[Rfam]
RNA: SAM-I/IV (S-adenosyl methionine) riboswitch aptamer
Organism: Profundicola chukchiensis
RNA sequence: CAUAAUCAUCAAGAGUUUUGCAUUUAUACAGAACGCCAACCGAGAGUUAAACCUCCACGGUGGCAUAGAAUGAGGGCGACCUGCCAAAAUUAAAGGUUAUU
Numbered sequence: 001c002a003u004a005a006u007c008a009u010c011a012a013g014a015g016u017u018u019u020g021c022a023u024u025u026a027u028a029c030a031g032a033a034c035g036c037c038a039a040c041c042g043a044g045a046g047u048u049a050a051a052c053c054u055c056c057a058c059g060g061u062g063g064c065a066u067a068g069a070a071u072g073a074g075g076g077c078g079a080c081c082u083g084c085c086a087a088a089a090u091u092a093a094a095g096g097u098u099a100u101u
Stems, first nucleotide, its partner, number of pairs: 006073004015034006035064003040060003044055002049097001075085004